The family of this 228-nucleotide part of an RNA from Acidiferrobacter sp. SPIII_3 is "Bacterial large subunit ribosomal RNA".
It scores 2802 bits against the family's covariance model.
The family's consensus secondary structure is taken from published work.
Lineage of the source: Bacteria > Pseudomonadota > Gammaproteobacteria > Acidiferrobacteraceae > Acidiferrobacter.
RNA sequence: GAGUUACUUUUCGUGGCAAGCCUAACCGUAUAGGGGAGGCGUAGGGAAACCGAGUCUGAAUAGGGCGAAUGAGUCGCGGGAAGUAGACCCGAAACCGGACGAUCUAUCCAUGGCCAGGUUGAAGGCGGGGUAACACCCGCUGGAGGACCGAACCAACCAAUGUUGAAAAAUUGGUGGAUGAGCUGUGGAUAGGAGUGAAAGGCUAAUCAAGUCCGGAGAUAGCUGGUU
Numbered sequence: 001g002a003g004u005u006a007c008u009u010u011u012c013g014u015g016g017c018a019a020g021c022c023u024a025a026c027c028g029u030a031u032a033g034g035g036g037a038g039g040c041g042u043a044g045g046g047a048a049a050c051c052g053a054g055u056c057u058g059a060a061u062a063g064g065g066c067g068a069a070u071g072a073g074u075c076g077c078g079g080g081a082a083g084u085a086g087a088c089c090c091g092a093a094a095c096c097g098g099a100c101g102a103u104c105u106a107u108c109c110a111u112g113g114c115c116a117g118g119u120u121g122a123a124g125g126c127g128g129g130g131u132a133a134c135a136c137c138c139g140c141u142g143g144a145g146g147a148c149c150g151a152a153c154c155a156a157c158c159a160a161u162g163u164u165g166a167a168a169a170a171u172u173g174g175u176g177g178a179u180g181a182g183c184u185g186u187g188g189a190u191a192g193g194a195g196u197g198a199a200a201g202g203c204u205a206a207u208c209a210a211g212u213c214c215g216g217a218g219a220u221a222g223c224u225g226g227u228u
Stems, first nucleotide, its partner, number of pairs: 005085013020040004026034002044051002054066004088226002091223001095216006104192011115180001117149004124141006153177003157174005194204003